RNA: tRNA
RNA sequence: GCGCCGGUGGUCUAGCGGCUAGGACCUGAGCCUUCCAAGCUCAUGGCCCGGGUUCAAAUCCCGGCCGGCGCA
Numbered sequence: 001g002c003g004c005c006g007g008u009g010g011u012c013u014a015g016c017g018g019c020u021a022g023g024a025c026c027u028g029a030g031c032c033u034u035c036c037a038a039g040c041u042c043a044u045g046g047c048c049c050g051g052g053u054u055c056a057a058a059u060c061c062c063g064g065c066c067g068g069c070g071c072a
Stems, first nucleotide, its partner, number of pairs: 001071007010025004027043005048064005